[Rfam]
RNA sequence: UUCAUUCCGUUGGGGUGCCCGCAAGGGCUGAGAGGCGAAAGCCAACCCAUCGAACCUGAUCCGGUUAAUACCGGCGGAGGGAACGGAAGGGACCGGCCG
Numbered sequence: 001u002u003c004a005u006u007c008c009g010u011u012g013g014g015g016u017g018c019c020c021g022c023a024a025g026g027g028c029u030g031a032g033a034g035g036c037g038a039a040a041g042c043c044a045a046c047c048c049a050u051c052g053a054a055c056c057u058g059a060u061c062c063g064g065u066u067a068a069u070a071c072c073g074g075c076g077g078a079g080g081g082a083a084c085g086g087a088a089g090g091g092a093c094c095g096g097c098c099g
Base pairs, nucleotide, nucleotide: 006087007086008085009084010083011049012048013047014046017028018027019026020025035042036041055080056079057078061074062073063072064071

Rfam assigns this 99-nucleotide RNA from Cereibacter changlensis to the family "TPP riboswitch aptamer (THI element)". Pairs were carried over by alignment from the consensus structure, which is taken from published work. From the family's description: Vitamin B(1) in its active form thiamin pyrophosphate (TPP) is an essential coenzyme that is synthesised by coupling of pyrimidine and thiazole moieties in bacteria. NCBI's taxonomy places the organism under Bacteria, Pseudomonadota, Paracoccaceae, Cereibacter, Cereibacter changlensis.